[Rfam]
Guanidine-I riboswitch aptamer: a 90-nucleotide RNA sequence from Ornithinibacillus hominis. Taxonomically the source falls in Ornithinibacillus (Bacteria, Bacillati, Bacilli, Caryophanales). The family has 100 seed sequences and 1,509 matches in Rfam 15.1. This family represents a conserved RNA structure found upstream of the ykkC and yxkD genes in Bacillus subtilis and related genes in other bacteria.

RNA sequence: UAGAAAGUUUUCUAGGGUUCCGCCAAAUUAGGGUCUGGUCCGAGAGAAAACGCACGAAAGUGUACACGGAGGGACAAAAGCCCGGGAGGA
Numbered sequence: 001u002a003g004a005a006a007g008u009u010u011u012c013u014a015g016g017g018u019u020c021c022g023c024c025a026a027a028u029u030a031g032g033g034u035c036u037g038g039u040c041c042g043a044g045a046g047a048a049a050a051c052g053c054a055c056g057a058a059a060g061u062g063u064a065c066a067c068g069g070a071g072g073g074a075c076a077a078a079a080g081c082c083c084g085g086g087a088g089g090a
Stems, first nucleotide, its partner, number of pairs: 007051006015041002020038002022035001023032002052063004065085001067088001071083003